Notes: BsrG: a 242-nucleotide sequence from Bacillus sp. FJAT-18017. Gene Ontology terms of the family: autolysis and toxin activity. Taxonomically the source falls in Bacillus (Bacteria, Bacillota, Bacilli, Caryophanales). The family's consensus secondary structure was predicted with WAR. On this family, see Jahn et al., Mol Microbiol 2012: "BsrG/SR4 from Bacillus subtilis--the first temperature-dependent type I toxin-antitoxin system". Rfam's curators write: bsrE, bsrG and bsrH pair through intermolecular interactions with antisense sRNAs. Rfam classes the family as a small RNA. The family has 6 seed sequences and 614 matches in Rfam 15.1.

[Rfam]
RNA sequence: CAAUAGGAUAGGUUUGUCCAAGGGUGGCCGGUUUACUCCAUAUGAAAGGGGUGAUGCCGGUGACAGUAUACGAAUCGCUGACGCUAAUGAUCACAUUCGCGGGAUUCGUUGUCACAAUACUGUCUUUUACAAAUAAAAAAUAAUCCACCCUUAAGUGCAAGCCUGGGUGGAUUAAGCGCCUUCAAUGCCGGCCCCUUCUGGGAACCGCCUAUUGUAGACCGAACAUGGUACCAGCAUGUUCG
Numbered sequence: 001c002a003a004u005a006g007g008a009u010a011g012g013u014u015u016g017u018c019c020a021a022g023g024g025u026g027g028c029c030g031g032u033u034u035a036c037u038c039c040a041u042a043u044g045a046a047a048g049g050g051g052u053g054a055u056g057c058c059g060g061u062g063a064c065a066g067u068a069u070a071c072g073a074a075u076c077g078c079u080g081a082c083g084c085u086a087a088u089g090a091u092c093a094c095a096u097u098c099g100c101g102g103g104a105u106u107c108g109u110u111g112u113c114a115c116a117a118u119a120c121u122g123u124c125u126u127u128u129a130c131a132a133a134u135a136a137a138a139a140a141u142a143a144u145c146c147a148c149c150c151u152u153a154a155g156u157g158c159a160a161g162c163c164u165g166g167g168u169g170g171a172u173u174a175a176g177c178g179c180c181u182u183c184a185a186u187g188c189c190g191g192c193c194c195c196u197u198c199u200g201g202g203a204a205c206c207g208c209c210u211a212u213u214g215u216a217g218a219c220c221g222a223a224c225a226u227g228g229u230a231c232c233a234g235c236a237u238g239u240u241c242g
Stems, first nucleotide, its partner, number of pairs: 001214005007208001009207001011205001015190002017155001020152005026145002033054007062124007075090003102113001165179001167177001192202003220242008229233001